Source information:
Rfam assigns this 454-nucleotide sequence from Metabacillus harenarius to the family "Group I catalytic intron". The organism belongs to Metabacillus, within Bacteria. Rfam 15.1 lists 5,602 matches to the family in 1,395 species.
RNA sequence: UGACACAUCUUGUUGAACAGGGUGGUUCAAGACGAGGUAGAGUAGUUUAACGCGUGCCUCGUCUAUAAAAUACCUCGUGAAUUGCUGGAAACUCUUUAUGGUUUAAGUUAUUCAUUACCUCUAGAUACUUAACUAAAGGUGAUAUAAAAAUGAUAAAACCAUAUGAUGCAUCUGAAAUACAAAAAUGUAAAAUAUGUCAUUUUCAAUUAUCUUCAUGCAUCAUACAUGACUUACUGGCUACAACGUAACUGGAAACGGUAAGCGUGAAUGCUAGAAAACAGUAAGUGGAUAAAGACAAUCAGCAGCCAAGCUCCUGUUAUGGAGAAGGUUCAACGACCAUCGAAAACACGUCAUACAUGGCGGAAGUGAGUAGAGUAGGGAUUAAGUAAUCCCGAAGUGCGAGGGCGCUCAGGAAGAGUGUAAGAUAUGGUCUGAACUCUAAGGUGACUUAGAG
Number, nucleotide and partner (000 for none) at each position: 001u000002g000003a000004c000005a000006c024007a023008u022009c021010u020011u019012g018013u017014u000015g000016a000017a013018c012019a011020g010021g009022g008023u007024g006025g000026u000027u000028c000029a000030a000031g000032a000033c000034g000035a000036g000037g000038u000039a000040g000041a000042g000043u000044a000045g000046u000047u000048u000049a000050a000051c000052g000053c000054g000055u000056g000057c000058c000059u000060c000061g000062u000063c000064u000065a000066u000067a000068a000069a000070a000071u000072a000073c000074c403075u402076c401077g000078u399079g398080a000081a000082u000083u304084g303085c302086u301087g300088g299089a000090a000091a000092c000093u295094c294095u293096u292097u291098a290099u289100g000101g000102u000103u000104u000105a000106a000107g000108u000109u000110a000111u000112u000113c000114a000115u000116u000117a000118c000119c000120u000121c000122u000123a000124g000125a000126u000127a000128c000129u000130u000131a000132a000133c000134u000135a000136a000137a000138g000139g000140u000141g000142a000143u000144a000145u000146a000147a000148a000149a000150a000151u000152g000153a000154u000155a000156a000157a000158a000159c000160c000161a000162u000163a000164u000165g000166a000167u000168g000169c000170a000171u000172c000173u000174g000175a000176a000177a000178u000179a000180c000181a000182a000183a000184a000185a000186u000187g000188u000189a000190a000191a000192a000193u000194a000195u000196g000197u000198c000199a000200u000201u000202u000203u000204c000205a000206a000207u000208u000209a000210u000211c000212u000213u000214c000215a000216u000217g000218c000219a000220u000221c000222a000223u000224a000225c000226a000227u000228g000229a000230c000231u000232u000233a000234c000235u000236g000237g000238c000239u000240a000241c000242a000243a000244c000245g000246u000247a000248a000249c000250u000251g000252g000253a000254a000255a000256c000257g000258g000259u000260a000261a000262g000263c000264g000265u000266g000267a000268a000269u000270g000271c000272u000273a000274g000275a000276a000277a000278a000279c000280a000281g000282u000283a000284a000285g000286u000287g000288g000289a099290u098291a097292a096293a095294g094295a093296c000297a000298a000299u088300c087301a086302g085303c084304a083305g329306c328307c000308a000309a000310g000311c000312u322313c321314c000315u000316g000317u000318u000319a000320u000321g313322g312323a000324g000325a000326a000327g000328g306329u305330u000331c000332a000333a433334c000335g432336a431337c430338c429339a428340u000341c000342g000343a000344a000345a000346a000347c000348a000349c000350g000351u000352c000353a000354u000355a000356c000357a000358u000359g000360g000361c000362g000363g000364a000365a000366g000367u000368g000369a000370g000371u000372a000373g000374a000375g000376u000377a000378g000379g000380g000381a000382u000383u000384a000385a000386g000387u000388a000389a000390u000391c000392c000393c000394g000395a000396a000397g000398u079399g078400c000401g076402a075403g074404g000405g000406c420407g419408c418409u417410c416411a000412g000413g000414a000415a000416g410417a409418g408419u407420g406421u000422a000423a000424g000425a000426u000427a000428u339429g338430g337431u336432c335433u333434g000435a000436a000437c000438u000439c452440u451441a450442a449443g448444g000445u000446g000447a000448c443449u442450u441451a440452g439453a000454g000